RNA sequence: UCAGUGUUGUAGAGCUGUUUGCAAGGUACCUAAUUGUUUGAAAUGAUUCUCAAUUGGUCCCCUCCAAGCAGCUCCAUCGCAUUCG
Numbered sequence: 001u002c003a004g005u006g007u008u009g010u011a012g013a014g015c016u017g018u019u020u021g022c023a024a025g026g027u028a029c030c031u032a033a034u035u036g037u038u039u040g041a042a043a044u045g046a047u048u049c050u051c052a053a054u055u056g057g058u059c060c061c062c063u064c065c066a067a068g069c070a071g072c073u074c075c076a077u078c079g080c081a082u083u084c085g
Base pairs, nucleotide, nucleotide: 012074013073014072015071016070017069018068019067020066021065025061026060028058029057030056032055033054034053035052036051